[Rfam]
RNA: Antisense RNA which regulates isiA expression
Organism: Calothrix sp. NIES-3974
RNA sequence: CAUACCCAAAAAUUGCGAUCGCAUUUAAAUUGGGAUGGUCAAUGACUCUGACUUCACCGAUAAUCGGGUCAUACAAACCACCGUACAGCAUAGCUUUGGCGACAAAUAAACCAGCACCCACACCCAGCAACACUAGGUGAAUGCCCAAAAUGGUCGUCAUUUUUCUGGUAUCAUUCCA
Dot-bracket structure: .......................................................................................................................................(((((....(((..................)))..)))))...